Rfam assigns this 77-nucleotide RNA sequence from Chlorogloeopsis fritschii to the family "CyVA-1 RNA". From the family's description: Cyanobacteria, Acidobacteria (1 example), Verrucomicrobia (1 example).

RNA sequence: GUACUGGCAGGAAGUUUUAUCGUUGUGUUCCUUUGCUGCCUCUAGAAGGAGAGCGACGUCACAGAGGCAGACAGUGC
Numbered sequence: 001g002u003a004c005u006g007g008c009a010g011g012a013a014g015u016u017u018u019a020u021c022g023u024u025g026u027g028u029u030c031c032u033u034u035g036c037u038g039c040c041u042c043u044a045g046a047a048g049g050a051g052a053g054c055g056a057c058g059u060c061a062c063a064g065a066g067g068c069a070g071a072c073a074g075u076g077c
Stems, first nucleotide, its partner, number of pairs: 001077006009032004037069007